[Rfam]
RNA sequence: UAUUUAGACCUAUGCAAUAGGAUUUUAGGGUAACGCUUCAGGGUAGGAAUACAGCAGAGUCCCCUAAUUUCUUGUGUGCCUUAGCCAUCUGAAUAGGAG
Dot-bracket structure: ...(((((.(((.((.((((((..((((((....((((....(((....)))....)))).))))))..)))))))...).)))...))))).......
Annotation
A member of the RNA family "Bacterial small signal recognition particle RNA" from Helicobacter pylori, 99 nucleotides long. The source organism's lineage runs through Bacteria, Campylobacterota, Helicobacteraceae, Helicobacter and Helicobacter pylori. It is one of the family's seed sequences. Rfam classes the family as a non-coding RNA gene. Rfam links the family to the GO terms SRP-dependent cotranslational protein targeting to membrane, signal sequence recognition and signal recognition particle, plasma membrane targeting.